[Rfam]
RNA sequence: ACACAAGAUAGAGGUUGCGUGAUUCAUCAGUACCUUUGCGGAUGCGGCAGACGCAAGUGAAGCAGAGCGAAAGGGAUGAACGCCGAAAGAUAGGUUUCUGCAGACCGAUUCUUGGGCAUUGAGUGAAUAAUUCAAUGACUGUCAUCUAAUAAGUAGAUGGGGCGCUAUCAUUUAA
Numbered sequence: 001a002c003a004c005a006a007g008a009u010a011g012a013g014g015u016u017g018c019g020u021g022a023u024u025c026a027u028c029a030g031u032a033c034c035u036u037u038g039c040g041g042a043u044g045c046g047g048c049a050g051a052c053g054c055a056a057g058u059g060a061a062g063c064a065g066a067g068c069g070a071a072a073g074g075g076a077u078g079a080a081c082g083c084c085g086a087a088a089g090a091u092a093g094g095u096u097u098c099u100g101c102a103g104a105c106c107g108a109u110u111c112u113u114g115g116g117c118a119u120u121g122a123g124u125g126a127a128u129a130a131u132u133c134a135a136u137g138a139c140u141g142u143c144a145u146c147u148a149a150u151a152a153g154u155a156g157a158u159g160g161g162g163c164g165c166u167a168u169c170a171u172u173u174a175a
Stems, first nucleotide, its partner, number of pairs: 007169005017083004024076002034067006087113003090109002093106005114140002117137008142160007